[Rfam]
RNA sequence: GAGUGCACGCUCGUGGCGAGUUUAAGGGGGUUAAGCCCCGUAAGGCGCAGGGAAACCGACUUGCCCGCAGCCGAGCAAUCGGCGAGGGGCGGGGUCUUAAUGGGCCUGGAGCCACGGGCGGGCGACCCGAAACCGAGCGAUCUAUCCCGGGGCAGGGCGAAGCGGGGUGAAAGCCCCGUGGAGGCCCGAAGGGGUUCUGACGUGCAAAUCGUUCCUCUGACCCUGGGAUAGGGGCAAAAGACCAAUCAAGCUCGGUGAUAGCUGGUU
Numbered sequence: 001g002a003g004u005g006c007a008c009g010c011u012c013g014u015g016g017c018g019a020g021u022u023u024a025a026g027g028g029g030g031u032u033a034a035g036c037c038c039c040g041u042a043a044g045g046c047g048c049a050g051g052g053a054a055a056c057c058g059a060c061u062u063g064c065c066c067g068c069a070g071c072c073g074a075g076c077a078a079u080c081g082g083c084g085a086g087g088g089g090c091g092g093g094g095u096c097u098u099a100a101u102g103g104g105c106c107u108g109g110a111g112c113c114a115c116g117g118g119c120g121g122g123c124g125a126c127c128c129g130a131a132a133c134c135g136a137g138c139g140a141u142c143u144a145u146c147c148c149g150g151g152g153c154a155g156g157g158c159g160a161a162g163c164g165g166g167g168u169g170a171a172a173g174c175c176c177c178g179u180g181g182a183g184g185c186c187c188g189a190a191g192g193g194g195u196u197c198u199g200a201c202g203u204g205c206a207a208a209u210c211g212u213u214c215c216u217c218u219g220a221c222c223c224u225g226g227g228a229u230a231g232g233g234g235c236a237a238a239a240g241a242c243c244a245a246u247c248a249a250g251c252u253c254g255g256u257g258a259u260a261g262c263u264g265g266u267u
Stems, first nucleotide, its partner, number of pairs: 005123002008120010020046004026039004050057002063090004070083004093106004126265002129262001133255006142231011153219001155187004162179007191216004197211001199210002233243002
RNA: Archaeal large subunit ribosomal RNA, nucleotides 669 to 935